[Rfam]
RNA sequence: GGGAUACCCUUAUGGGGCAGGACUUGCUUCAGUGGGGCUUUGGAGCUCACUGAGUCUCGCCCUUGAUUGUGUCACU
Number, nucleotide and partner (000 for none) at each position: 001g075002g000003g073004a072005u071006a070007c069008c000009c000010u066011u065012a064013u000014g062015g061016g060017g000018c000019a057020g000021g056022a055023c054024u000025u000026g000027c000028u000029u053030c052031a051032g050033u049034g048035g047036g046037g000038c043039u000040u000041u000042g000043g038044a000045g000046c036047u035048c034049a033050c032051u031052g030053a029054g023055u022056c021057u019058c000059g000060c016061c015062c014063u000064u012065g011066a010067u000068u000069g007070u006071g005072u004073c003074a000075c001076u000